Rfam assigns this 61-nucleotide RNA sequence from Gluconobacter oxydans to the family "Fluoride riboswitch aptamer (crcB RNA motif)". The source organism's lineage runs through Bacteria, Alphaproteobacteria, Acetobacterales, Gluconobacter and Gluconobacter oxydans.
RNA sequence: CCUGGACAAGGGGAUGGGGUUCCCCUGAAACCGCCGCAAGGCUGAUGACUCCUCUGUGCCG
Dot-bracket structure: .........[[[[..((((((]]]].......(((....)))....)))))).........